[Rfam]
RNA: Glycine riboswitch aptamer
Organism: Orrella dioscoreae
RNA sequence: ACUGACCGCACAGAAGAGUCCAGCCCGCCCGGGCUGGCGCCGACGGAGCAACCGCCCCGGAAACUCUCAGGCCCAAGGACUGCGCGGUCCAG
Numbered sequence: 001a002c003u004g005a006c007c008g009c010a011c012a013g014a015a016g017a018g019u020c021c022a023g024c025c026c027g028c029c030c031g032g033g034c035u036g037g038c039g040c041c042g043a044c045g046g047a048g049c050a051a052c053c054g055c056c057c058c059g060g061a062a063a064c065u066c067u068c069a070g071g072c073c074c075a076a077g078g079a080c081u082g083c084g085c086g087g088u089c090c091a092g
Base pairs, nucleotide, nucleotide: 006087007086008085009084011082012081013080020037021036022035023034039072040071041070042068043067046066047065048064052060053059